[Rfam]
Description:
The family of this 120-nucleotide RNA sequence from Saltera sarcocolla is "Plastid-psbA-1 3UTR RNA". By type it is a cis-regulatory element. Plastid psbA-1 is a non-coding RNA (ncRNA) present in plastids. It was identified in inverted repeat sequences in the 3 prime untranslate region (3UTR) of photosystem II quinone-binding protein (psbA). Its Rfam clan is "Plastid-psbA 3UTR RNA clan". Rfam's curators put it in the seed alignment.
RNA sequence: GUUGAAGCUCCAUCUAUAAAUGGAUAAGACUUUUGUCUUAGUGUAAGUUUAGACGAGUUUUCGAUUUGAAAGUAAAGGAGUAAUAACCAAUUUCUUGAUCAAAUUGGUUAUUACUCCUUU
Numbered sequence: 001g002u003u004g005a006a007g008c009u010c011c012a013u014c015u016a017u018a019a020a021u022g023g024a025u026a027a028g029a030c031u032u033u034u035g036u037c038u039u040a041g042u043g044u045a046a047g048u049u050u051a052g053a054c055g056a057g058u059u060u061u062c063g064a065u066u067u068g069a070a071a072g073u074a075a076a077g078g079a080g081u082a083a084u085a086a087c088c089a090a091u092u093u094c095u096u097g098a099u100c101a102a103a104u105u106g107g108u109u110a111u112u113a114c115u116c117c118u119u120u
Stems, first nucleotide, its partner, number of pairs: 009024005074120013088106003092102002